Background:
The family of this 32-nucleotide RNA is "S4-Flavobacteria ribosomal protein leader".

RNA sequence: UUUUGUCGAAGGACAGACCUUAAUUCACAAAA
Numbered sequence: 001u002u003u004u005g006u007c008g009a010a011g012g013a014c015a016g017a018c019c020u021u022a023a024u025u026c027a028c029a030a031a032a
Stems, first nucleotide, its partner, number of pairs: 001032006008026001009021004